[Rfam]
Rfam assigns this 74-nucleotide RNA from Thermoclostridium stercorarium to the family "tRNA".
RNA sequence: GCGCCUAUAGCUCAACUGGAUAGAGCGUCUGGCUACGGACCAGAAGGUUGUGGGUUCGAUUCCUGCUGGGCGCA
Numbered sequence: 001g002c003g004c005c006u007a008u009a010g011c012u013c014a015a016c017u018g019g020a021u022a023g024a025g026c027g028u029c030u031g032g033c034u035a036c037g038g039a040c041c042a043g044a045a046g047g048u049u050g051u052g053g054g055u056u057c058g059a060u061u062c063c064u065g066c067u068g069g070g071c072g073c074a
Base pairs, nucleotide, nucleotide: 001073002072003071004070005069006068007067010026011025012024013023028044029043030042031041032040050066051065052064053063054062
Annotation
Lineage of the source: Bacteria > Bacillota > Eubacteriales > Oscillospiraceae > Thermoclostridium stercorarium subsp. stercorarium.